Overview: Small nucleolar RNA SNORD14: a 124-nucleotide sequence from Ziziphus jujuba. The source organism's lineage runs through Eukaryota, Embryophyta, Magnoliopsida, fabids and Ziziphus. About the family: U14 small nucleolar RNA (U14 snoRNA) is required for early cleavages of eukaryotic precursor rRNAs. In yeasts, this molecule possess a stem-loop region (known as the Y-domain) which is essential for function. A similar structure, but with a different consensus sequence, is found in plants, but is absent in vertebrates. For this family Rfam cites "An essential domain in Saccharomyces cerevisiae U14 snoRNA is absent in vertebrates, but conserved in other yeasts" (Samarsky et al., Nucleic Acids Res, 1996).

[Rfam]
RNA sequence: UGCUUAUGAUGACAUAUCCAAAGGCUUGUUUCUCAAAACAUUCGCAGUGGCCGCCUAAGAGCUUUCGCCUAUGCGGGGCUAGAGAGCUGAUGCUGCAUUUAUCCUUCCUUGGAUGUCUGAGACC
Numbered sequence: 001u002g003c004u005u006a007u008g009a010u011g012a013c014a015u016a017u018c019c020a021a022a023g024g025c026u027u028g029u030u031u032c033u034c035a036a037a038a039c040a041u042u043c044g045c046a047g048u049g050g051c052c053g054c055c056u057a058a059g060a061g062c063u064u065u066c067g068c069c070u071a072u073g074c075g076g077g078g079c080u081a082g083a084g085a086g087c088u089g090a091u092g093c094u095g096c097a098u099u100u101a102u103c104c105u106u107c108c109u110u111g112g113a114u115g116u117c118u119g120a121g122a123c124c
Base pairs, nucleotide, nucleotide: 002123004121061087062086063085064084065083066082
Overview
Rfam classes the family as a C/D-box small nucleolar RNA. Rfam 15.1 lists 4,559 matches to the family in 936 species. Its family is annotated with RNA processing and nucleolus in the Gene Ontology.